[Rfam]
RNA: Plant signal recognition particle RNA
Organism: Ensete ventricosum
RNA sequence: GCCGAGCCCGAUAGCGUGGGCUUGUAACCCGAGCGGAGGCAAUAAGAUGGUGGGAUGAUUGUGUUCAGCUCCAGUGGGUUGGGGGCGGCCGUGCAAUACUUGGCUUGCCCGUUCCAAGUCAAGCAGCUGAGUUAUGUGACACGGGCGAAAGCUCGAGCCAUAUGGAAUCCUGAAGCGGAGGAUACCGCGUUAGGCUGGUUUCACAGAGCAGCGUUUACCUCCCGCUCUUGACGGUGGAAGGAUCACAGGCUGGUGCACGACCCCCCUCGACACGCCCAUUGGGCCAACGCUACUCAAACCACCAUUUUU
Dot-bracket structure: ((((((((((......))))))).....((....)).)))...((((((((((..((..((((((..((.(((((((((.(((((.(((.(((((....((((((((.((.(((((.((((((.(((.((.(((((((.(.(((((....))))).).)))))).).))(....).(((((.....((((....(((......)))....))))...))))).)))))))))..)))))))....)))))))))))))).)).))))).....))))))))))).)))).))..))..)))))))))).